The family of this 61-nucleotide sequence from Macleaya microcarpa is "Plastid-psbA-4 3UTR RNA". The base pairs follow the family's consensus structure, which was predicted with LocARNA. The organism belongs to Macleaya, within Eukaryota. The sequence is in the family's curated seed alignment. Plastid psbA-4 is a non-coding RNA (ncRNA) present in plastids. It was identified in inverted repeat sequences in the 3 prime untranslate region (3UTR) of photosystem II quinone-binding protein (psbA).

[Rfam]
RNA sequence: AAGUUGAAGGAGCAAUACCGAAUUUCUUGUUCUAUCAAGAGGGUGGGUAUUGCUCCUUCAU
Numbered sequence: 001a002a003g004u005u006g007a008a009g010g011a012g013c014a015a016u017a018c019c020g021a022a023u024u025u026c027u028u029g030u031u032c033u034a035u036c037a038a039g040a041g042g043g044u045g046g047g048u049a050u051u052g053c054u055c056c057u058u059c060a061u
Base pairs, nucleotide, nucleotide: 006059007058008057009056010055011054012053013052014051015050016049017048021044024041025040026039027038028037029036